[Rfam]
RNA sequence: UUGAUUUAAAUUAUUGUGGAUGUAUAUUUUGAAAAUUGAACCCACACAAAAUGGUGGGACAUACAUUGAUUCCAUCCAA
Numbered sequence: 001u002u003g004a005u006u007u008a009a010a011u012u013a014u015u016g017u018g019g020a021u022g023u024a025u026a027u028u029u030u031g032a033a034a035a036u037u038g039a040a041c042c043c044a045c046a047c048a049a050a051a052u053g054g055u056g057g058g059a060c061a062u063a064c065a066u067u068g069a070u071u072c073c074a075u076c077c078a079a
Base pairs, nucleotide, nucleotide: 001079002078003077006074009071010070011069012068013067015065016064017063018062023056024055025053026052027051028050029049030048031047